The family of this 79-nucleotide RNA sequence from Starkeya sp. ORNL1 is "Makes More Granules Regulator RNA (mmgR)". Lineage of the source: Bacteria > Pseudomonadota > Alphaproteobacteria > Xanthobacteraceae > Starkeya. The family's RNA type in Rfam is small RNA.
RNA sequence: GCCCGCUGCUCUCCUUGGGCGUUUCCUCCCUAGACUUGGGCCGCUCCGCUUGCGUGAGCGGACCCUUUCUUUCCUGGAG
Dot-bracket structure: .......((((.....)))).................((.((((((.........)))))).))...............